Shown here is a 72-nucleotide RNA sequence from Caproicibacter fermentans, a member of the family "Glycine riboswitch aptamer". NCBI's taxonomy places the organism under Bacteria, Bacillati, Clostridia, Acutalibacteraceae, Caproicibacter.
RNA sequence: CUCCGGAAAGUCCAUCGGACACCGAAGAGGCAAUUCCCGGUCGGGAAGAAUCUUUCAGGUUGAUCAACGGAG
Numbered sequence: 001c002u003c004c005g006g007a008a009a010g011u012c013c014a015u016c017g018g019a020c021a022c023c024g025a026a027g028a029g030g031c032a033a034u035u036c037c038c039g040g041u042c043g044g045g046a047a048g049a050a051u052c053u054u055u056c057a058g059g060u061u062g063a064u065c066a067a068c069g070g071a072g
Stems, first nucleotide, its partner, number of pairs: 001072005011019003021060003024056002028054003034047002
The literature on the family includes a 2004 paper in Science by Mandal et al., "A glycine-dependent riboswitch that uses cooperative binding to control gene expression".